Rfam assigns this 68-nucleotide RNA sequence from Erysipelothrix inopinata to the family "Fluoride riboswitch aptamer (crcB RNA motif)". The source organism's lineage runs through Bacteria, Bacillota, Erysipelotrichales, Erysipelotrichaceae and Erysipelothrix. For this family Rfam cites "Fluoride ion encapsulation by Mg2+ ions and phosphates in a fluoride riboswitch" (Ren et al., Nature, 2012).
RNA sequence: AUUUAAUAAAGCGAUGGUGUUCGCUAGAACCAUUAUCUAAAGUGAUAAUUAAUGACGCCUACCAAAAA
Numbered sequence: 001a002u003u004u005a006a007u008a009a010a011g012c013g014a015u016g017g018u019g020u021u022c023g024c025u026a027g028a029a030c031c032a033u034u035a036u037c038u039a040a041a042g043u044g045a046u047a048a049u050u051a052a053u054g055a056c057g058c059c060u061a062c063c064a065a066a067a068a
Base pairs, nucleotide, nucleotide: 010025011024012023013022016059017058018057019056020055021054032049033048034047035046036045037044